[Rfam]
RNA sequence: GUCAAUAUUUGGCAAACCCGGCGAAAGCCGGCGGCGCAAAGCUAAAGGGCCUUACCUCUCACCAGGUUGGCAGCCAGUUGCAAUC
Dot-bracket structure: ...........((....(((((....)))))....))..((((...(((((....((......))...)))..))))))......
Shown here is an 85-nucleotide RNA from Zongyangia hominis, a member of the family "c-di-GMP-I riboswitch aptamer". The source organism's lineage runs through Bacteria, Bacillota, Clostridia, Oscillospiraceae and Zongyangia. The family's consensus secondary structure is taken from published work. Its family is annotated with cyclic-di-GMP binding in the Gene Ontology. A search with the family's covariance model found it, with a score of 55 bits.